[Rfam]
RNA sequence: AGGGGCCCUACAGGAGCGACAUGAGAUCACAUCGAGCAUGUGCAUCGACUUCCGAUGUGCUGCAACUUGGCAUCGUGCUGGAUGUGUUCUCAGGUCGCCCCUGCCGGGCUACC
Number, nucleotide and partner (000 for none) at each position: 001a000002g000003g000004g000005g000006c000007c107008c106009u000010a000011c103012a102013g101014g100015a000016g098017c097018g096019a095020c000021a000022u000023g091024a090025g089026a088027u000028c086029a085030c084031a083032u082033c000034g000035a000036g000037c000038a000039u000040g000041u000042g000043c000044a000045u000046c000047g000048a000049c000050u000051u000052c000053c000054g000055a000056u000057g000058u000059g000060c000061u000062g000063c000064a000065a000066c000067u000068u000069g000070g000071c000072a000073u000074c000075g000076u000077g000078c000079u000080g000081g000082a032083u031084g030085u029086g028087u000088u026089c025090u024091c023092a000093g000094g000095u019096c018097g017098c016099c000100c014101c013102u012103g011104c000105c000106g008107g007108g000109c000110u000111a000112c000113c000